Shown here is a 107-nucleotide sequence from Aquimarina sp. MMG016, a member of the family "SAM riboswitch aptamer (S box leader)".
RNA sequence: UUGUUAUCAAGAAAGGUGGAGGGAAUAGACCCUGUGAUACCUUAGCAACCCUUUAUCAAUUAAAGAAGGUGCUACAUUCUAUCCACACAAUGUGGAAUAGAUAACGA
Numbered sequence: 001u002u003g004u005u006a007u008c009a010a011g012a013a014a015g016g017u018g019g020a021g022g023g024a025a026u027a028g029a030c031c032c033u034g035u036g037a038u039a040c041c042u043u044a045g046c047a048a049c050c051c052u053u054u055a056u057c058a059a060u061u062a063a064a065g066a067a068g069g070u071g072c073u074a075c076a077u078u079c080u081a082u083c084c085a086c087a088c089a090a091u092g093u094g095g096a097a098u099a100g101a102u103a104a105c106g107a
Base pairs, nucleotide, nucleotide: 001107002106003105004104005103006102007101008100013043014042015041016040017039021032022031023030026081027080028079029078044073045072046071047070049069050068051065052064053063054062077099082096083095084094085093086092087091
It scores 89 bits against the family's covariance model.